[Rfam]
The family of this 164-nucleotide RNA sequence from Brevundimonas abyssalis is "caulobacter sRNA CC2171". The source organism's lineage runs through Bacteria, Pseudomonadati, Alphaproteobacteria, Caulobacteraceae and Brevundimonas abyssalis. Pairs were carried over by alignment from the consensus structure, which was predicted with RNAalifold. By type it is a small RNA.
RNA sequence: CAACAGCUGAAAGGAGGUGAUCCGGUGUCUCAUUGUCACUCGACGCGAGCGGAGAUCGGAACCCGGACCUCUUGCGAGGCCCGCGCCUGACCUUUCAGGCAAGGAUCUGAUCGGCCGCUCAGCGGUCAGACAAUGCGAGGCCGCCGGCGCAAUCCGGCGGCCUC
Numbered sequence: 001c002a003a004c005a006g007c008u009g010a011a012a013g014g015a016g017g018u019g020a021u022c023c024g025g026u027g028u029c030u031c032a033u034u035g036u037c038a039c040u041c042g043a044c045g046c047g048a049g050c051g052g053a054g055a056u057c058g059g060a061a062c063c064c065g066g067a068c069c070u071c072u073u074g075c076g077a078g079g080c081c082c083g084c085g086c087c088u089g090a091c092c093u094u095u096c097a098g099g100c101a102a103g104g105a106u107c108u109g110a111u112c113g114g115c116c117g118c119u120c121a122g123c124g125g126u127c128a129g130a131c132a133a134u135g136c137g138a139g140g141c142c143g144c145c146g147g148c149g150c151a152a153u154c155c156g157g158c159g160g161c162c163u164c
Base pairs, nucleotide, nucleotide: 016023017022031135032134033133034132035131036130037129047057048056050054062079063078082109083108086104087103088102091099092098115125116124117123118122137164138163139162140161141160142159143158144157145156146155147154